THF-II riboswitch (folE RNA): a 39-nucleotide sequence from Aminobacter sp. J15. The family's RNA type in Rfam is cis-regulatory element. On this family, see Xu et al., Nucleic Acids Res 2023: "Structural insights into translation regulation by the THF-II riboswitch". A search with the family's covariance model found it, with a score of 64 bits.

[Rfam]
RNA sequence: CCGUUUAACUCGUCCCUUCCUCGAAAGGGACUACGGGAG
Numbered sequence: 001c002c003g004u005u006u007a008a009c010u011c012g013u014c015c016c017u018u019c020c021u022c023g024a025a026a027g028g029g030a031c032u033a034c035g036g037g038a039g
Stems, first nucleotide, its partner, number of pairs: 001036004012031007